Rfam assigns this 100-nucleotide sequence from Pluvianellus socialis to the family "Small nucleolar RNA SNORD16". The base pairs follow the family's consensus structure, which was predicted with PFOLD. By type it is a C/D-box small nucleolar RNA. A reference for the family is Fragapane et al. (1993), "A novel small nucleolar RNA (U16) is encoded inside a ribosomal protein intron and originates by processing of the pre-mRNA", EMBO J. NCBI's taxonomy places the organism under Eukaryota, Gnathostomata, Tetrapoda, Coelurosauria, Pluvianellus. A search with the family's covariance model found it, with a score of 90 bits. Clan: SNORD16 clan.

[Rfam]
RNA sequence: UGCUGUGAUGUUGUAAUUUGCGCCUUACUCUGUGCUCGGAGACAGUUGCCUGCUGUCAGUGUACCGGUACAGGGGGUUGACGAACAAUUAACACUGAGCA
Numbered sequence: 001u002g003c004u005g006u007g008a009u010g011u012u013g014u015a016a017u018u019u020g021c022g023c024c025u026u027a028c029u030c031u032g033u034g035c036u037c038g039g040a041g042a043c044a045g046u047u048g049c050c051u052g053c054u055g056u057c058a059g060u061g062u063a064c065c066g067g068u069a070c071a072g073g074g075g076g077u078u079g080a081c082g083a084a085c086a087a088u089u090a091a092c093a094c095u096g097a098g099c100a
Stems, first nucleotide, its partner, number of pairs: 001100003021082002024079001030072005039064001041057005